A member of the RNA family "S15-Flavobacteria ribosomal protein leader" from Mangrovimonas yunxiaonensis, 92 nucleotides long.
RNA sequence: UAUAUUUGCCGCUUGAAAGAAAGCCUUUCAAAAAAAAAAUGCCCAAUUAGUACUGGGCUGUACAUAACAAUCAUUUAUACAAUAUUAGCAUG
Numbered sequence: 001u002a003u004a005u006u007u008g009c010c011g012c013u014u015g016a017a018a019g020a021a022a023g024c025c026u027u028u029c030a031a032a033a034a035a036a037a038a039a040u041g042c043c044c045a046a047u048u049a050g051u052a053c054u055g056g057g058c059u060g061u062a063c064a065u066a067a068c069a070a071u072c073a074u075u076u077a078u079a080c081a082a083u084a085u086u087a088g089c090a091u092g
Stems, first nucleotide, its partner, number of pairs: 013031006

About this RNA
By type it is a cis-regulatory leader. Pairs were carried over by alignment from the consensus structure, which is taken from published work. The family is grouped with related families in Rfam's "Ribosomal Protein S15 Leader clan".